[Rfam]
RNA sequence: AGCGUUUGCCAAACACUCCUUCUCCUCCCCGGAGUUGGCAAUCGCUGUUCCCCUCUGGAGGCUCUUUAGCCUUCAUACCUUGCAGGGCCCGGUUCAACCGCGGCCCUCUUUU
Numbered sequence: 001a002g003c004g005u006u007u008g009c010c011a012a013a014c015a016c017u018c019c020u021u022c023u024c025c026u027c028c029c030c031g032g033a034g035u036u037g038g039c040a041a042u043c044g045c046u047g048u049u050c051c052c053c054u055c056u057g058g059a060g061g062c063u064c065u066u067u068a069g070c071c072u073u074c075a076u077a078c079c080u081u082g083c084a085g086g087g088c089c090c091g092g093u094u095c096a097a098c099c100g101c102g103g104c105c106c107u108c109u110u111u112u
Base pairs, nucleotide, nucleotide: 001046002045003044004043007040008039009038015035016034017033018032056075057074058073059072060071061070062069084107085106086105087104088103089102090100091099092098093097
Rfam assigns this 112-nucleotide sequence from Rhizobium sp. RU20A to the family "Alphaproteobacterial ar15".
It is annotated as a small RNA.
Clan: suhB sRNA clan.
Rfam 15.1 lists 316 matches to the family in 177 species.
The source organism's lineage runs through Bacteria, Pseudomonadati, Alphaproteobacteria, Rhizobiaceae and Rhizobium.
The match comes from Rfam's covariance-model search (74 bits).
Its family is annotated with protein binding in the Gene Ontology.